[Rfam]
RNA sequence: UACCAAGGACAGUAAAGAUACAGGCAGGCUAACCCCGCCAGGUCCGAAAGGAAGCAACGGUAACUUGACCUUAUCUGUUACUGUCCUUGGCCUUU
Numbered sequence: 001u002a003c004c005a006a007g008g009a010c011a012g013u014a015a016a017g018a019u020a021c022a023g024g025c026a027g028g029c030u031a032a033c034c035c036c037g038c039c040a041g042g043u044c045c046g047a048a049a050g051g052a053a054g055c056a057a058c059g060g061u062a063a064c065u066u067g068a069c070c071u072u073a074u075c076u077g078u079u080a081c082u083g084u085c086c087u088u089g090g091c092c093u094u095u
Stems, first nucleotide, its partner, number of pairs: 004089011015076001017075004025067004030062001035060003043052003
RNA: Bacterial small signal recognition particle RNA
Organism: Candidatus Methylacidiphilum fumarolicum